[Rfam]
RNA sequence: UGAAAUCUUCAAUUCCGUAGUGCAUUGCAGUUUGUUGAACUCCGAAAUUACUGCAAGCAUUGUGGAAAUGAUGAUUUUAUG
Numbered sequence: 001u002g003a004a005a006u007c008u009u010c011a012a013u014u015c016c017g018u019a020g021u022g023c024a025u026u027g028c029a030g031u032u033u034g035u036u037g038a039a040c041u042c043c044g045a046a047a048u049u050a051c052u053g054c055a056a057g058c059a060u061u062g063u064g065g066a067a068a069u070g071a072u073g074a075u076u077u078u079a080u081g
Stems, first nucleotide, its partner, number of pairs: 006074002009071003014066005021059003025056007
Dot-bracket structure: .....((.(((..(((((..(((.(((((((..................))))))))))..)))))..))).)).......
The record is an 81-nucleotide RNA sequence from Musca domestica, which matches "mir-932 microRNA precursor family" in Rfam. Its family is annotated with miRNA-mediated post-transcriptional gene silencing and RISC complex in the Gene Ontology. A reference for the family is Ruby et al. (2007), "Evolution, biogenesis, expression, and target predictions of a substantially expanded set of Drosophila microRNAs", Genome Res. The family has 14 seed sequences and 136 matches in Rfam 15.1.